RNA: Rhizobiales sRNA Atu_C10
RNA sequence: CUGUCAAUUGAUGUCUAGGCACCAAAUGACCCGGUUCGGUGCAUUGACCCUUUACCCCCAGCCCCCAAUGCCCGGACCGGAUAAGACU
Numbered sequence: 001c002u003g004u005c006a007a008u009u010g011a012u013g014u015c016u017a018g019g020c021a022c023c024a025a026a027u028g029a030c031c032c033g034g035u036u037c038g039g040u041g042c043a044u045u046g047a048c049c050c051u052u053u054a055c056c057c058c059c060a061g062c063c064c065c066c067a068a069u070g071c072c073c074g075g076a077c078c079g080g081a082u083a084a085g086a087c088u
Base pairs, nucleotide, nucleotide: 003030004029005028006027008025009024010023012021013020014019031080032079033078034077035076036075037074038073039072041071042070043069044068045067046066